[Rfam]
RNA sequence: CGAGUCGAUCGGGCGGCCGCGUCGAUGCCUUUUGACAUCGCCGAGGAACGUCCGGACUCCAUAGGGCAGGGUGGUUGCUAACGGCAACCCGGGGCGACCCGCGGGAAAGUGCCACAGAAAACAGACCGCCCGCGGCCAGCUGGUCGCGGGUAAGGGUGAAACGGUGAGGUAAGAGCUCACCAGCACGGCGGGCGACCGUCGUGGCUCGGUAAACCCCACCCGGAGCAAGGCCAAGAAGGGUCCUUCCCUCACGGGGGAAGAGCCCGCGUGAGCGCUUGAGGGCUGCCCGCCCGAGUUCACGGGUAGGCCGCAAGAGCCCGCUGGCAACGGCGGGCCGAGAUGGAUGGCCGCCGCCAGCGUUACGGCGCUGGCACAGAAUCCGGCGUAGAGAUCGACUCGUCCG
Numbered sequence: 001c002g003a004g005u006c007g008a009u010c011g012g013g014c015g016g017c018c019g020c021g022u023c024g025a026u027g028c029c030u031u032u033u034g035a036c037a038u039c040g041c042c043g044a045g046g047a048a049c050g051u052c053c054g055g056a057c058u059c060c061a062u063a064g065g066g067c068a069g070g071g072u073g074g075u076u077g078c079u080a081a082c083g084g085c086a087a088c089c090c091g092g093g094g095c096g097a098c099c100c101g102c103g104g105g106a107a108a109g110u111g112c113c114a115c116a117g118a119a120a121a122c123a124g125a126c127c128g129c130c131c132g133c134g135g136c137c138a139g140c141u142g143g144u145c146g147c148g149g150g151u152a153a154g155g156g157u158g159a160a161a162c163g164g165u166g167a168g169g170u171a172a173g174a175g176c177u178c179a180c181c182a183g184c185a186c187g188g189c190g191g192g193c194g195a196c197c198g199u200c201g202u203g204g205c206u207c208g209g210u211a212a213a214c215c216c217c218a219c220c221c222g223g224a225g226c227a228a229g230g231c232c233a234a235g236a237a238g239g240g241u242c243c244u245u246c247c248c249u250c251a252c253g254g255g256g257g258a259a260g261a262g263c264c265c266g267c268g269u270g271a272g273c274g275c276u277u278g279a280g281g282g283c284u285g286c287c288c289g290c291c292c293g294a295g296u297u298c299a300c301g302g303g304u305a306g307g308c309c310g311c312a313a314g315a316g317c318c319c320g321c322u323g324g325c326a327a328c329g330g331c332g333g334g335c336c337g338a339g340a341u342g343g344a345u346g347g348c349c350g351c352c353g354c355c356a357g358c359g360u361u362a363c364g365g366c367g368c369u370g371g372c373a374c375a376g377a378a379u380c381c382g383g384c385g386u387a388g389a390g391a392u393c394g395a396c397u398c399g400u401c402c403g
Base pairs, nucleotide, nucleotide: 001399002398003397004396005395006394007393008392009391010390012352013351014350015349016348017347018346020043021042023040024039025038026037027036048386049385050384052383053382054381055380056379057225058224059223060222064288065287066286067285069221070220071219072218073217074088075087076086077085078084089103090101091100092099093098104216105215109214110213111210112209113208126155127154128151129150130149131148132147133146134145135144136143163181164180165179166178167177168176183205184203185202186201187200188199189198190197191196229309230308231307232306239300240298243295280292281291282290283289316335317334318333319332320331321330322329323328
RNA: Bacterial RNase P class A